MIR159 microRNA precursor family: a 196-nucleotide sequence from Helianthus annuus. Lineage of the source: Eukaryota > Streptophytina > eudicotyledons > campanulids > Helianthus. Its family is annotated with miRNA-mediated post-transcriptional gene silencing and RISC complex in the Gene Ontology.
RNA sequence: AAAAGAAAAAGAGAGCUUUCUUCAGUCCACCCAUGGGUUGCGAUAAGAUAUCAAUUAGCUGCCGACUCAUUCAGCCAAAUACUAAGUCAAAUUCUGGCUAUAUAUGGUGCUUGGUAAAUGAUUGAAUGAUGCGGGAGACAAAUUGAAUCUUAGGUUUCCUGUACUUGGACUGAAGGGAGCUCCCUUAGUUUUUAAU
Numbered sequence: 001a002a003a004a005g006a007a008a009a010a011g012a013g014a015g016c017u018u019u020c021u022u023c024a025g026u027c028c029a030c031c032c033a034u035g036g037g038u039u040g041c042g043a044u045a046a047g048a049u050a051u052c053a054a055u056u057a058g059c060u061g062c063c064g065a066c067u068c069a070u071u072c073a074g075c076c077a078a079a080u081a082c083u084a085a086g087u088c089a090a091a092u093u094c095u096g097g098c099u100a101u102a103u104a105u106g107g108u109g110c111u112u113g114g115u116a117a118a119u120g121a122u123u124g125a126a127u128g129a130u131g132c133g134g135g136a137g138a139c140a141a142a143u144u145g146a147a148u149c150u151u152a153g154g155u156u157u158c159c160u161g162u163a164c165u166u167g168g169a170c171u172g173a174a175g176g177g178a179g180c181u182c183c184c185u186u187a188g189u190u191u192u193u194a195a196u
Stems, first nucleotide, its partner, number of pairs: 013182008023172007036159001059137002062134003068128004076120001